[Rfam]
RNA: mir-6 microRNA precursor family
Organism: Drosophila kikkawai
RNA sequence: AGCCCCAGGGAACUGCUGCUGCUGAUAUAUUAUCAAGAAUUUCUAUAUCACAGUGGCUGUUCUUUUUGGUU
Numbered sequence: 001a002g003c004c005c006c007a008g009g010g011a012a013c014u015g016c017u018g019c020u021g022c023u024g025a026u027a028u029a030u031u032a033u034c035a036a037g038a039a040u041u042u043c044u045a046u047a048u049c050a051c052a053g054u055g056g057c058u059g060u061u062c063u064u065u066u067u068g069g070u071u
Base pairs, nucleotide, nucleotide: 004068007065008064009063010062011061012060013059016056017055018054019053020052021051023050024049026047027046028045029044